RNA: TD-2 RNA
Organism: Treponema vincentii
Nucleotides: 104
Base pairs, nucleotide, nucleotide: 001018005014006013031057032056033055035054036053037052038051039050040049041048042047060100061099062098063097064096065095066094067093068092069091070090072088073087074086075085
Number, partner (000 for none) and nucleotide at each position: 001018c002000c003000a004000a005014u006013c007000a008000a009000a010000g011000c012000u013006g014005a015000a016000a017000a018001g019000c020000a021000c022000u023000c024000c025000a026000a027000u028000c029000a030000g031057c032056g033055a034000u035054g036053u037052u038051u039050u040049g041048c042047g043000a044000u045000u046000a047042c048041g049040c050039a051038a052037a053036a054035c055033u056032c057031g058000g059000c060100g061099u062098u063097u064096a065095a066094c067093u068092g069091c070090g071000a072088c073087c074086g075085c076000g077000a078000a079000a080000u081000u082000u083000u084000a085075g086074c087073g088072g089000c090070c091069g092068c093067a094066g095065u096064u097063a098062a099061a100060c101000u102000u103000g104000c